Rfam assigns this 103-nucleotide sequence from Gordonia amarae to the family "Glycine riboswitch aptamer".
RNA sequence: CGCACCGCUGCGGGAGAGCGUCGCCCACCUUAAGGUGAGGGUGACCGCCGAAGGAGCAACACCUCCUCGUCAAACUCUCAGGCACCUGGACCGUGGUGGAUGA
Numbered sequence: 001c002g003c004a005c006c007g008c009u010g011c012g013g014g015a016g017a018g019c020g021u022c023g024c025c026c027a028c029c030u031u032a033a034g035g036u037g038a039g040g041g042u043g044a045c046c047g048c049c050g051a052a053g054g055a056g057c058a059a060c061a062c063c064u065c066c067u068c069g070u071c072a073a074a075c076u077c078u079c080a081g082g083c084a085c086c087u088g089g090a091c092c093g094u095g096g097u098g099g100a101u102g103a
Stems, first nucleotide, its partner, number of pairs: 006098008020045007047083003050079002054077003061070002
Notes:
Rfam's curators write: This family represents the bacterial glycine riboswitch.